Shown here is a 194-nucleotide RNA sequence from Rhizobium gallicum, a member of the family "Rhizobiales sRNA Atu_C9". The match comes from Rfam's covariance-model search (157 bits). NCBI's taxonomy places the organism under Bacteria, Pseudomonadota, Rhizobiaceae, Rhizobium gallicum, Rhizobium gallicum bv. gallicum.

[Rfam]
RNA sequence: GGUUAACGCGAGGAGGCAGACAUGGGUAUUACACGAUCCUUGAAUGUCCUGUUGGUCAGUGCAGCGUUCGCGUUCGUCUUGUCCAUGCUCUUCAUUUGAGCGGUCGGCGAACCCUAUGACUGGAAUACCUAGCUCCUGACAAGCUAACAGUUCAGCCAAUUAAAAAGCGCAUGUCACCGCCAGACAUGCGCUUU
Numbered sequence: 001g002g003u004u005a006a007c008g009c010g011a012g013g014a015g016g017c018a019g020a021c022a023u024g025g026g027u028a029u030u031a032c033a034c035g036a037u038c039c040u041u042g043a044a045u046g047u048c049c050u051g052u053u054g055g056u057c058a059g060u061g062c063a064g065c066g067u068u069c070g071c072g073u074u075c076g077u078c079u080u081g082u083c084c085a086u087g088c089u090c091u092u093c094a095u096u097u098g099a100g101c102g103g104u105c106g107g108c109g110a111a112c113c114c115u116a117u118g119a120c121u122g123g124a125a126u127a128c129c130u131a132g133c134u135c136c137u138g139a140c141a142a143g144c145u146a147a148c149a150g151u152u153c154a155g156c157c158a159a160u161u162a163a164a165a166a167g168c169g170c171a172u173g174u175c176a177c178c179g180c181c182a183g184a185c186a187u188g189c190g191c192u193u194u
Stems, first nucleotide, its partner, number of pairs: 015048004024040003164194012